[Rfam]
RNA sequence: CUGAAACUCUGGAGAGAUAUCUCGCCGAAAGGUGAGGUGCGCCGAAGGGAUAACAAUCUCAGGCAAACGGACAGAGGGGGCUCA
Numbered sequence: 001c002u003g004a005a006a007c008u009c010u011g012g013a014g015a016g017a018u019a020u021c022u023c024g025c026c027g028a029a030a031g032g033u034g035a036g037g038u039g040c041g042c043c044g045a046a047g048g049g050a051u052a053a054c055a056a057u058c059u060c061a062g063g064c065a066a067a068c069g070g071a072c073a074g075a076g077g078g079g080g081c082u083c084a
Stems, first nucleotide, its partner, number of pairs: 007076005018039006041064003044060002048058002
RNA: Glycine riboswitch aptamer